[Rfam]
RNA sequence: AGUUGGCCUACUGCACAGGAACGGGUUUCCCCUCGCAGCGCCAAGGGGGAUGAGCCUCGCCAGCAGCGGCCAAGGCCGGAAAGGCGAAAUACACAGCGUCGGGUAGAGUUUGGUAGGGUCCUCGGAUCUCGAAGAAGUCAGGCCCA
Numbered sequence: 001a002g003u004u005g006g007c008c009u010a011c012u013g014c015a016c017a018g019g020a021a022c023g024g025g026u027u028u029c030c031c032c033u034c035g036c037a038g039c040g041c042c043a044a045g046g047g048g049g050a051u052g053a054g055c056c057u058c059g060c061c062a063g064c065a066g067c068g069g070c071c072a073a074g075g076c077c078g079g080a081a082a083g084g085c086g087a088a089a090u091a092c093a094c095a096g097c098g099u100c101g102g103g104u105a106g107a108g109u110u111u112g113g114u115a116g117g118g119u120c121c122u123c124g125g126a127u128c129u130c131g132a133a134g135a136a137g138u139c140a141g142g143c144c145c146a
Stems, first nucleotide, its partner, number of pairs: 003044005011038004018030004046056002057087005067078004101145004106139002109136003116129005
Rfam assigns this 146-nucleotide RNA sequence to the family "RT-3 RNA". Pairs were carried over by alignment from the consensus structure, which is taken from published work.